[Rfam]
RNA sequence: UUGGGUUGCUGAAUUAGAGAUCGGCGCCCGUGUCUGUUAUUUAUAAUUUGGAGUAUGACAAUGUCUCUAAGUGUUGAAGCUAAAGCUAAAAUCGUAGCUGAUUUCGGUCGUGGUACU
Numbered sequence: 001u002u003g004g005g006u007u008g009c010u011g012a013a014u015u016a017g018a019g020a021u022c023g024g025c026g027c028c029c030g031u032g033u034c035u036g037u038u039a040u041u042u043a044u045a046a047u048u049u050g051g052a053g054u055a056u057g058a059c060a061a062u063g064u065c066u067c068u069a070a071g072u073g074u075u076g077a078a079g080c081u082a083a084a085g086c087u088a089a090a091a092u093c094g095u096a097g098c099u100g101a102u103u104u105c106g107g108u109c110g111u112g113g114u115a116c117u
Stems, first nucleotide, its partner, number of pairs: 007026006047071007
Shown here is a 117-nucleotide RNA from Serratia sp. DD3, a member of the family "Ribosomal S15 leader".
The E. coli Ribosomal S15 gene 5' UTR can form two alternative structures. One that is a series of three hairpins, The other includes a pseudoknot. This structure causes translational regulation of the S15 protein. The alignment of this family contains only the final two hairpins which are conserved in other species, and also includes the complete region that forms the alternate structures.
The literature on the family includes a 1996 paper in Biochimie by Benard et al., "Pseudoknot and translational control in the expression of the S15 ribosomal protein".
By type it is a cis-regulatory leader.
It scores 109 bits against the family's covariance model.
Taxonomically the source falls in Serratia (Bacteria, Gammaproteobacteria, Enterobacterales, Yersiniaceae).